[Rfam]
RNA sequence: AUAUGGGCAAUGAUGAACACUUUAUUUAAGCCAAACAGUUAUCCCUGUCAUAAGAAUAAUUGAUGAUAAAAGUUGCUGAUUCAUAU
Numbered sequence: 001a002u003a004u005g006g007g008c009a010a011u012g013a014u015g016a017a018c019a020c021u022u023u024a025u026u027u028a029a030g031c032c033a034a035a036c037a038g039u040u041a042u043c044c045c046u047g048u049c050a051u052a053a054g055a056a057u058a059a060u061u062g063a064u065g066a067u068a069a070a071a072g073u074u075g076c077u078g079a080u081u082c083a084u085a086u
Stems, first nucleotide, its partner, number of pairs: 001086007